[Rfam]
Rfam assigns this 87-nucleotide RNA from Senna tora to the family "mir-160 microRNA precursor family".
RNA sequence: GCUUGCCUGGCUCCCUGAAUGCCAUUUAAGAAGCUUUCCAAAAGGGUUGGCAACCUUCUUACUUGGCAUGAGGGGAGCCAUGCAGGC
Numbered sequence: 001g002c003u004u005g006c007c008u009g010g011c012u013c014c015c016u017g018a019a020u021g022c023c024a025u026u027u028a029a030g031a032a033g034c035u036u037u038c039c040a041a042a043a044g045g046g047u048u049g050g051c052a053a054c055c056u057u058c059u060u061a062c063u064u065g066g067c068a069u070g071a072g073g074g075g076a077g078c079c080a081u082g083c084a085g086g087c
Stems, first nucleotide, its partner, number of pairs: 001087006008080007016072001019069006027061003
On this family, see Rhoades et al., Cell 2002: "Prediction of plant microRNA targets". Its family is annotated with miRNA-mediated post-transcriptional gene silencing and RISC complex in the Gene Ontology. The organism belongs to Senna, within Eukaryota.